Mason-Pfizer monkey virus packaging signal: a 285-nucleotide RNA from Macaca nemestrina. This family represents a group of sequences that are related to the Mason-Pfizer monkey virus (MPMV) packaging signal. The family has 9 seed sequences and 2,921 matches in Rfam 15.1. The organism belongs to Macaca, within Eukaryota. Rfam classes the family as a cis-regulatory element.
[Rfam]
RNA sequence: UGGCGCCGAACAGGGACCUGGAAAACGAGGACUCCAUGGGAGGAGAGGGACGCCAGAAGGACGGUCGACCGUAACGAGGACAAGGAGGUUCAAACUUUCGAUCACCGCGGGAACACUGCCCGUCAAGAAUCGAAGUAAGUGAUGCGGUCCGAAAUGGGACAAGAAUUAGCCACAUCAAAUAAUAUGAUUAGGCAAUUAAAAGGAGGCUUAAAGGAUACGAGGAGUAACGUUUAAAGGUAAUGUUUGUUUAAAUUUUGUUUGAUUUUGUAAAAGACAUUUGCCUUG
Dot-bracket structure: ......((.................)).....(((............)))...........................................(((((...((...(((((.......)))))...).)..)))))......((...((((...)))).))....((((((.................................))).)))......(((((((...((..((.......))..)).......))).)))).........(((.(....).))).